The family of this 160-nucleotide RNA from Paenarthrobacter aurescens is "c-di-AMP riboswitch aptamer (ydaO/yuaA leader)". Pairs were carried over by alignment from the consensus structure. The source organism's lineage runs through Bacteria, Actinomycetota, Actinomycetes, Micrococcaceae and Paenarthrobacter.

[Rfam]
RNA sequence: ACUUCCCGGAGUCCGUUCUUUCUCCGAGGCAGAGACGGGGGACCCAGAGUCUCCGGGCCAGGCCUUUUGGCCGGUCCUUGGGGUGAAGCCGCAGCGUGAUGCGCGGCCGGAUGACCUCAUCCGAACCCGACAGCUAACUCCGCAGGCGCUGAGAGGUAAU
Numbered sequence: 001a002c003u004u005c006c007c008g009g010a011g012u013c014c015g016u017u018c019u020u021u022c023u024c025c026g027a028g029g030c031a032g033a034g035a036c037g038g039g040g041g042a043c044c045c046a047g048a049g050u051c052u053c054c055g056g057g058c059c060a061g062g063c064c065u066u067u068u069g070g071c072c073g074g075u076c077c078u079u080g081g082g083g084u085g086a087a088g089c090c091g092c093a094g095c096g097u098g099a100u101g102c103g104c105g106g107c108c109g110g111a112u113g114a115c116c117u118c119a120u121c122c123g124a125a126c127c128c129g130a131c132a133g134c135u136a137a138c139u140c141c142g143c144a145g146g147c148g149c150u151g152a153g154a155g156g157u158a159a160u
Base pairs, nucleotide, nucleotide: 002034003033004032036142037141038140039139040138045080046079081128082127083126089106090105091104092103109122110121111120112119